MIR390 microRNA precursor family: a 120-nucleotide RNA sequence from Jatropha curcas. The family has 16 seed sequences and 649 matches in Rfam 15.1. NCBI's taxonomy places the organism under Eukaryota, Mesangiospermae, Malpighiales, Crotonoideae, Jatropha.

RNA sequence: UGGAAGAAUCUGUUAAGCUCAGGAGGGAUAGCGCCAUAAUCGAUCAUUACUCUUUUUUUCCUUGGGGUUUUGAUUUUCUUUCUAUAGCGCUAUCCAUCCUGAGUUUCAUGGCUUCUUCUU
Numbered sequence: 001u002g003g004a005a006g007a008a009u010c011u012g013u014u015a016a017g018c019u020c021a022g023g024a025g026g027g028a029u030a031g032c033g034c035c036a037u038a039a040u041c042g043a044u045c046a047u048u049a050c051u052c053u054u055u056u057u058u059u060c061c062u063u064g065g066g067g068u069u070u071u072g073a074u075u076u077u078c079u080u081u082c083u084a085u086a087g088c089g090c091u092a093u094c095c096a097u098c099c100u101g102a103g104u105u106u107c108a109u110g111g112c113u114u115c116u117u118c119u120u
Stems, first nucleotide, its partner, number of pairs: 010111001016105009026095009